[Rfam]
RNA sequence: UCUGUCAAUGGUACCGGAGCGCAGCGAGGAUAAGAAAUUGACAGAUGAACUUGU
Numbered sequence: 001u002c003u004g005u006c007a008a009u010g011g012u013a014c015c016g017g018a019g020c021g022c023a024g025c026g027a028g029g030a031u032a033a034g035a036a037a038u039u040g041a042c043a044g045a046u047g048a049a050c051u052u053g054u
Stems, first nucleotide, its partner, number of pairs: 001045009

Shown here is a 54-nucleotide sequence from Fictibacillus enclensis, a member of the family "Bacillus-plasmid RNA". Rfam classes the family as a small RNA. Rfam 15.1 lists 155 matches to the family in 128 species. NCBI's taxonomy places the organism under Bacteria, Bacillati, Bacillota, Caryophanales, Fictibacillus. A search with the family's covariance model found it, with a score of 45 bits. The base pairs follow the family's consensus structure, which is taken from published work.